RNA sequence: AAUUACCUGGAGUGUUCGUCAGUAGGCUAUGUCCCUGAGCCGAUACUUUAAAUCUUAUAAAUUGGUUUCCUAUCGUUGGUGUGUAGGCUUAACCUUUGACUCGUUCAUUGGGCUAAGAAACCUGAAAACGGUAUCAACUGAUUUCCUUGAACCGUCGGGUUCAAGGACUACUGCCCGCAGCGGCACUCUGGGUCCUAU
Numbered sequence: 001a002a003u004u005a006c007c008u009g010g011a012g013u014g015u016u017c018g019u020c021a022g023u024a025g026g027c028u029a030u031g032u033c034c035c036u037g038a039g040c041c042g043a044u045a046c047u048u049u050a051a052a053u054c055u056u057a058u059a060a061a062u063u064g065g066u067u068u069c070c071u072a073u074c075g076u077u078g079g080u081g082u083g084u085a086g087g088c089u090u091a092a093c094c095u096u097u098g099a100c101u102c103g104u105u106c107a108u109u110g111g112g113c114u115a116a117g118a119a120a121c122c123u124g125a126a127a128a129c130g131g132u133a134u135c136a137a138c139u140g141a142u143u144u145c146c147u148u149g150a151a152c153c154g155u156c157g158g159g160u161u162c163a164a165g166g167a168c169u170a171c172u173g174c175c176c177g178c179a180g181c182g183g184c185a186c187u188c189u190g191g192g193u194c195c196u197a198u
Stems, first nucleotide, its partner, number of pairs: 002196001005193011017182003031168004036163006059144003063140005071133007083121002088117004